[Rfam]
The record is a 53-nucleotide RNA sequence from Lacrimispora algidixylanolytica, which matches "Streptococcus sRNA SpF59 (ldcC RNA)" in Rfam. The base pairs follow the family's consensus structure, which was predicted with mfold. The match comes from Rfam's covariance-model search (64 bits). By type it is a small RNA.

RNA sequence: CGACCACUUCAUUAUGAAGUUAAGCCCAGACGGACAGGCGGGUCGGCUGCCGA
Dot-bracket structure: (((((((((((...))))))....................)))))........